[Rfam]
RNA sequence: GAGUCAAUAAUAAGUUAAUGUCUUGUACAGAAGUGAAAACACAAAAAUCAACCUCAGUUGGAUUAUGCUGAAGCUC
Numbered sequence: 001g002a003g004u005c006a007a008u009a010a011u012a013a014g015u016u017a018a019u020g021u022c023u024u025g026u027a028c029a030g031a032a033g034u035g036a037a038a039a040c041a042c043a044a045a046a047a048u049c050a051a052c053c054u055c056a057g058u059u060g061g062a063u064u065a066u067g068c069u070g071a072a073g074c075u076c
Base pairs, nucleotide, nucleotide: 001076002075003074004073005070006069008067009066
RNA: Small nucleolar RNA SNORD115
Organism: Enhydra lutris